[Rfam]
The family of this 67-nucleotide RNA sequence from Pseudomonas sp. URIL14HWK12:I9 is "Repression of heat shock gene expression (ROSE) element". The literature on the family includes a 2013 paper in PLoS One by Krajewski et al., "Short ROSE-Like RNA Thermometers Control IbpA Synthesis in Pseudomonas Species".

RNA sequence: UACGCGAUGCCGAAGUCGGGUCGCGUAAAGAACCUAACUCGCUGAAUCUCAGGAGAUUGACAUGACU
Numbered sequence: 001u002a003c004g005c006g007a008u009g010c011c012g013a014a015g016u017c018g019g020g021u022c023g024c025g026u027a028a029a030g031a032a033c034c035u036a037a038c039u040c041g042c043u044g045a046a047u048c049u050c051a052g053g054a055g056a057u058u059g060a061c062a063u064g065a066c067u
Stems, first nucleotide, its partner, number of pairs: 001027008010019003031057001038055003042052004